The family of this 386-nucleotide part of an RNA from Ilyonectria sp. MPI-CAGE-AT-0026 is "Ascomycota telomerase RNA". Its family is annotated with telomerase catalytic core complex, telomere maintenance via telomerase and telomerase activity in the Gene Ontology. Lineage of the source: Eukaryota > Ascomycota > Sordariomycetes > Hypocreomycetidae > Ilyonectria.

RNA sequence: AAUCAAACAGAAGGAGCCAGCUCGGCCAAGUCUCGAAUUAUCUGGAAUUCAUGGUGUUGCGUCGACUUCUGGCAGAGUCCUGUCGGCGAAGGCUUCAAGCUAUGAUGGGUUGACAGCUCGCGAACAACCUCCACCUUGGCAUCCUCUCUCUUUCUAAAACGGCGCCCGCGGUUGACGUCCGAAGCAGCACCGGGACCCAUCUCGAGUUGGAGUCAAAGUUUCGUGCUUGUCUGGUGCUGCCAAGGGCCCGGCUAAGGGUCAAGUCGAGGAUCCUGAGAGUCAGGAUUGAGGUUGGGUUGUUGUCUUGGAUCUCUUGGACAGGCCGCAUUGGAUGAGGCAGUCCUGGUUGCCUUCUCGCCAGAAAUGGUGUAGGAGGCAACCCCCCU
Numbered sequence: 001a002a003u004c005a006a007a008c009a010g011a012a013g014g015a016g017c018c019a020g021c022u023c024g025g026c027c028a029a030g031u032c033u034c035g036a037a038u039u040a041u042c043u044g045g046a047a048u049u050c051a052u053g054g055u056g057u058u059g060c061g062u063c064g065a066c067u068u069c070u071g072g073c074a075g076a077g078u079c080c081u082g083u084c085g086g087c088g089a090a091g092g093c094u095u096c097a098a099g100c101u102a103u104g105a106u107g108g109g110u111u112g113a114c115a116g117c118u119c120g121c122g123a124a125c126a127a128c129c130u131c132c133a134c135c136u137u138g139g140c141a142u143c144c145u146c147u148c149u150c151u152u153u154c155u156a157a158a159a160c161g162g163c164g165c166c167c168g169c170g171g172u173u174g175a176c177g178u179c180c181g182a183a184g185c186a187g188c189a190c191c192g193g194g195a196c197c198c199a200u201c202u203c204g205a206g207u208u209g210g211a212g213u214c215a216a217a218g219u220u221u222c223g224u225g226c227u228u229g230u231c232u233g234g235u236g237c238u239g240c241c242a243a244g245g246g247c248c249c250g251g252c253u254a255a256g257g258g259u260c261a262a263g264u265c266g267a268g269g270a271u272c273c274u275g276a277g278a279g280u281c282a283g284g285a286u287u288g289a290g291g292u293u294g295g296g297u298u299g300u301u302g303u304c305u306u307g308g309a310u311c312u313c314u315u316g317g318a319c320a321g322g323c324c325g326c327a328u329u330g331g332a333u334g335a336g337g338c339a340g341u342c343c344u345g346g347u348u349g350c351c352u353u354c355u356c357g358c359c360a361g362a363a364a365u366g367g368u369g370u371a372g373g374a375g376g377c378a379a380c381c382c383c384c385c386u
Stems, first nucleotide, its partner, number of pairs: 194214003197210003216228004